[Rfam]
Rfam assigns this 138-nucleotide RNA sequence from Xenorhabdus cabanillasii to the family "STAXI RNA". It is annotated as a small RNA. Rfam 15.1 lists 130 matches to the family in 68 species. A search with the family's covariance model found it, with a score of 45 bits.

RNA sequence: UUUUCUACAACAAUGAUCCAUCGCCUGUCAAGAUCGCCUUCGGGUGGCGAAAUAACACUCCCGUAGCCUGCAAGGGAGAGCAAAUAUUGCGGUACAUCUGCGCACCUUUGGAAGCAGAUAUCGCUGGACAACAACCUU
Number, nucleotide and partner (000 for none) at each position: 001u007002u000003u000004u000005c000006u000007a001008c000009a000010a000011c000012a000013a000014u000015g035016a034017u033018c032019c000020a000021u050022c049023g048024c047025c046026u000027g000028u000029c000030a000031a000032g018033a017034u016035c015036g045037c044038c043039u000040u000041c000042g000043g038044g037045u036046g025047g024048c023049g022050a021051a000052a000053u000054a000055a000056c000057a000058c078059u077060c076061c075062c000063g095064u094065a093066g000067c092068c091069u000070g000071c000072a000073a000074g000075g061076g060077a059078g058079a000080g090081c089082a088083a000084a000085u000086a000087u000088u082089g081090c080091g068092g067093u065094a064095c063096a000097u118098c117099u116100g115101c114102g000103c000104a000105c000106c000107u131108u130109u000110g000111g000112a000113a000114g101115c100116a099117g098118a097119u000120a000121u128122c127123g000124c000125u000126g000127g122128a121129c000130a108131a107132c000133a000134a000135c000136c000137u000138u000